The family of this 69-nucleotide RNA from Georgfuchsia toluolica is "SAH (S-adenosyl-L-homocysteine) riboswitch aptamer". Rfam links the family to the GO terms regulation of gene expression and S-adenosylhomocysteine metabolic process. The family has 52 seed sequences and 1,354 matches in Rfam 15.1. The source organism's lineage runs through Bacteria, Pseudomonadati, Pseudomonadota, Sterolibacteriaceae and Georgfuchsia. The match comes from Rfam's covariance-model search (58 bits).

RNA sequence: CACUCCGAGGAGCGCUGCGAGACUGCAAUGGUCCCAGGCUCGGAAAAUUUGUAACGGCGCUCACCCAAC
Numbered sequence: 001c002a003c004u005c006c007g008a009g010g011a012g013c014g015c016u017g018c019g020a021g022a023c024u025g026c027a028a029u030g031g032u033c034c035c036a037g038g039c040u041c042g043g044a045a046a047a048u049u050u051g052u053a054a055c056g057g058c059g060c061u062c063a064c065c066c067a068a069c
Base pairs, nucleotide, nucleotide: 004044005043006042007041008040021033022032023031024030025029